[Rfam]
RNA sequence: UUUUGCAGUUAUGGAGAUAUCGUCCCCAAUACAAUAACAGGGAAAUGCGUGGGUGGUAUUUGCUCACUGAGCGGUGUGUUGGUGAUCGCGCUUCCAGUGCCUGUCAUUGUGUCAAAU
Numbered sequence: 001u002u003u004u005g006c007a008g009u010u011a012u013g014g015a016g017a018u019a020u021c022g023u024c025c026c027c028a029a030u031a032c033a034a035u036a037a038c039a040g041g042g043a044a045a046u047g048c049g050u051g052g053g054u055g056g057u058a059u060u061u062g063c064u065c066a067c068u069g070a071g072c073g074g075u076g077u078g079u080u081g082g083u084g085a086u087c088g089c090g091c092u093u094c095c096a097g098u099g100c101c102u103g104u105c106a107u108u109g110u111g112u113c114a115a116a117u
Stems, first nucleotide, its partner, number of pairs: 002116001004114002010111005016105004024097001040080002043077001053065001

The record is a 117-nucleotide RNA from Lingula anatina, which matches "Potassium channel RNA editing signal" in Rfam. About the family: This family represents a group of sequences related to the human potassium channel Kv1.1 hairpin element which directs the efficient modification of an adenosine to inosine by an adenosine deaminase acting on RNA (ADAR). It scores 65 bits against the family's covariance model. Taxonomically the source falls in Lingula (Eukaryota, Opisthokonta, Brachiopoda, Lingulidae). It is annotated as a cis-regulatory element.